[Rfam]
About this RNA:
Rfam assigns this 208-nucleotide RNA sequence from Hemisphaericaspora subhashii to the family "Small nucleolar RNA snR43". A reference for the family is Balakin et al. (1996), "The RNA world of the nucleolus: two major families of small RNAs defined by different box elements with related functions", Cell. It is annotated as an H/ACA-box small nucleolar RNA. The source organism's lineage runs through Eukaryota, Fungi, Dikarya, Pichiomycetes and Hemisphaericaspora. Clan: SNORA9 clan. It scores 140 bits against the family's covariance model.
RNA sequence: CACUCCUGUUUCUGCCCCAAAUUCAUUUACAUUUCCUUAGAAUUAUGGGUUCUAAUUAUGGAGAAGAUCAAGCCAUAGAAUGGACAUUUCACUACUUUUGAUACAUCCUGUGUUAUGUCUGUUGUAUGGAUCGUGUGGUGUACUUUUUCCUUAGUGUGGUUGACAUUACUUUAUUGUGUAAUGAAACCUGAAGGGUCCCACUAUAUUC
Numbered sequence: 001c002a003c004u005c006c007u008g009u010u011u012c013u014g015c016c017c018c019a020a021a022u023u024c025a026u027u028u029a030c031a032u033u034u035c036c037u038u039a040g041a042a043u044u045a046u047g048g049g050u051u052c053u054a055a056u057u058a059u060g061g062a063g064a065a066g067a068u069c070a071a072g073c074c075a076u077a078g079a080a081u082g083g084a085c086a087u088u089u090c091a092c093u094a095c096u097u098u099u100g101a102u103a104c105a106u107c108c109u110g111u112g113u114u115a116u117g118u119c120u121g122u123u124g125u126a127u128g129g130a131u132c133g134u135g136u137g138g139u140g141u142a143c144u145u146u147u148u149c150c151u152u153a154g155u156g157u158g159g160u161u162g163a164c165a166u167u168a169c170u171u172u173a174u175u176g177u178g179u180a181a182u183g184a185a186a187c188c189u190g191a192a193g194g195g196u197c198c199c200a201c202u203a204u205a206u207u208c
Stems, first nucleotide, its partner, number of pairs: 003063004016049004020044005073129005079123009090112003135201004143194003158188004167180003171176001